Background: The record is a 47-nucleotide sequence from Pirellula sp. SH-Sr6A, which matches "Acido-Lenti-1 RNA" in Rfam. Lineage of the source: Bacteria > Planctomycetota > Planctomycetia > Pirellulaceae > Pirellula. Rfam classes the family as a small RNA. The family's consensus secondary structure is taken from published work.
[Rfam]
RNA sequence: CCCAGCCUUGAAAGGCUGGGCUAUUAUCUACCGUCCCUAUCGGAACU
Dot-bracket structure: ((((((((....))))))))............((.((....)).)).
Numbered sequence: 001c002c003c004a005g006c007c008u009u010g011a012a013a014g015g016c017u018g019g020g021c022u023a024u025u026a027u028c029u030a031c032c033g034u035c036c037c038u039a040u041c042g043g044a045a046c047u
Stems, first nucleotide, its partner, number of pairs: 001020008033046002036043002